[Rfam]
RNA sequence: GCCGGCGUAGCUCAGCUGGUUAGAGCACACGGCUCAUACCCGUGACGUCACUGGUUCGAAUCCAGUCGCCGGUA
Dot-bracket structure: (((((((..((((.........)))).(((((.......))))).....(((((.......)))))))))))).
RNA: tRNA
Organism: Lancefieldella parvula